Background:
Streptomyces RNA 3202: a 95-nucleotide RNA sequence from Streptomyces sp. M41(2017).

[Rfam]
RNA sequence: CCGAGUCCCGACGCACACCCCCCCCCCGCGCCGGGACUCUUCCAGAGCCGGGCUCCGGCGCCUUCCCCCCCCUGGCGCCGGGGCCCGGCUCCAUG
Numbered sequence: 001c002c003g004a005g006u007c008c009c010g011a012c013g014c015a016c017a018c019c020c021c022c023c024c025c026c027c028g029c030g031c032c033g034g035g036a037c038u039c040u041u042c043c044a045g046a047g048c049c050g051g052g053c054u055c056c057g058g059c060g061c062c063u064u065c066c067c068c069c070c071c072c073u074g075g076c077g078c079c080g081g082g083g084c085c086c087g088g089c090u091c092c093a094u095g
Base pairs, nucleotide, nucleotide: 005037006036007035008034009033010032012030013029014028045091046090047089048088049087050086051085052084053083054082056080057079058078059077060076061075062074
For this family Rfam cites "Deep sequencing-based identification of small non-coding RNAs in Streptomyces coelicolor" (Vockenhuber et al., RNA Biol, 2011). Identified by deep sequencing of transcriptome at the end of exponential growth phase. Appears smaller on northern blot than sequencing transcript. This indicates processing step. A search with the family's covariance model found it, with a score of 67 bits. Taxonomically the source falls in Streptomyces (Bacteria, Bacillati, Actinomycetes, Kitasatosporales). By type it is a small RNA.